[Rfam]
RNA sequence: GGAUUACUCCUUUACGCUUUCGCGUUUGGUUGAUAAAGAUUCGCACCUCUAUCAAACCGGGUAAUCCCACCUCUUGGCAAGACCUGCUGUCAGAUCAAAUCUGAACUACUACAACUGAAUCCUUCUGUCUGUUGCUACAUUGACAGAUCGUAAUCGUUAUUCCGAUCAGGCGAUUGCCUAUUCUUCCGGGAUUGUCGUUGUUC
Numbered sequence: 001g002g003a004u005u006a007c008u009c010c011u012u013u014a015c016g017c018u019u020u021c022g023c024g025u026u027u028g029g030u031u032g033a034u035a036a037a038g039a040u041u042c043g044c045a046c047c048u049c050u051a052u053c054a055a056a057c058c059g060g061g062u063a064a065u066c067c068c069a070c071c072u073c074u075u076g077g078c079a080a081g082a083c084c085u086g087c088u089g090u091c092a093g094a095u096c097a098a099a100u101c102u103g104a105a106c107u108a109c110u111a112c113a114a115c116u117g118a119a120u121c122c123u124u125c126u127g128u129c130u131g132u133u134g135c136u137a138c139a140u141u142g143a144c145a146g147a148u149c150g151u152a153a154u155c156g157u158u159a160u161u162c163c164g165a166u167c168a169g170g171c172g173a174u175u176g177c178c179u180a181u182u183c184u185u186c187c188g189g190g191a192u193u194g195u196c197g198u199u200g201u202u203c
Stems, first nucleotide, its partner, number of pairs: 001067007009060002014025004028058004032053004037048002075156003081149002084146002089106002091103005109142001111141001113140001172199003176196001178194001180192001181190002
RNA: Proteobacterial sRNA psRNA2
Organism: Nitrosomonas europaea